[Rfam]
The record is a 93-nucleotide sequence from Pseudooctadecabacter jejudonensis, which matches "Rhodo-rpoB RNA" in Rfam. Lineage of the source: Bacteria > Pseudomonadati > Rhodobacterales > Paracoccaceae > Pseudooctadecabacter. By type it is a cis-regulatory element. It scores 60 bits against the family's covariance model.
RNA sequence: GGGUCGAGGGCCGCGCUUUGGGUCGCGCGGCGAGAAUGGACCCCCUUUUUGCUGUCUCGUAUGGCCGCAGGUCAGUCGCCCAACUGCCCUGCA
Numbered sequence: 001g002g003g004u005c006g007a008g009g010g011c012c013g014c015g016c017u018u019u020g021g022g023u024c025g026c027g028c029g030g031c032g033a034g035a036a037u038g039g040a041c042c043c044c045c046u047u048u049u050u051g052c053u054g055u056c057u058c059g060u061a062u063g064g065c066c067g068c069a070g071g072u073c074a075g076u077c078g079c080c081c082a083a084c085u086g087c088c089c090u091g092c093a
Stems, first nucleotide, its partner, number of pairs: 001043005010031007067092005073086003